[Rfam]
RNA sequence: GUGAAAUAAAUCACAAAACAAACAUACACCCCUUUGUUUGAACGUGAACAUUUCUCCCAUCCCCUUUGUGAAAAGAGGCGUCAUUAGCGGUCGAGGCUAAUGGCGUCUCUUU
Numbered sequence: 001g002u003g004a005a006a007u008a009a010a011u012c013a014c015a016a017a018a019c020a021a022a023c024a025u026a027c028a029c030c031c032c033u034u035u036g037u038u039u040g041a042a043c044g045u046g047a048a049c050a051u052u053u054c055u056c057c058c059a060u061c062c063c064c065u066u067u068g069u070g071a072a073a074a075g076a077g078g079c080g081u082c083a084u085u086a087g088c089g090g091u092c093g094a095g096g097c098u099a100a101u102g103g104c105g106u107c108u109c110u111u112u
Stems, first nucleotide, its partner, number of pairs: 003054005011047004019040006075109014